A member of the RNA family "Rhodo-rpoB RNA" from Pseudoprimorskyibacter insulae, 95 nucleotides long. It is annotated as a cis-regulatory element. The family's consensus secondary structure is taken from published work. A search with the family's covariance model found it, with a score of 57 bits.
[Rfam]
RNA sequence: GGAUCGAGUGGUGUGCGGUGGGACGCGCGCCGAGAAUGGAGCCGGAUCCAAUUGCCGUCACUGAAGAGGCGCGCCGUGGCCCGACGGCGCGUGUC
Numbered sequence: 001g002g003a004u005c006g007a008g009u010g011g012u013g014u015g016c017g018g019u020g021g022g023a024c025g026c027g028c029g030c031c032g033a034g035a036a037u038g039g040a041g042c043c044g045g046a047u048c049c050a051a052u053u054g055c056c057g058u059c060a061c062u063g064a065a066g067a068g069g070c071g072c073g074c075c076g077u078g079g080c081c082c083g084a085c086g087g088c089g090c091g092u093g094u095c
Stems, first nucleotide, its partner, number of pairs: 001043002004040002010031008066095002069092002072089005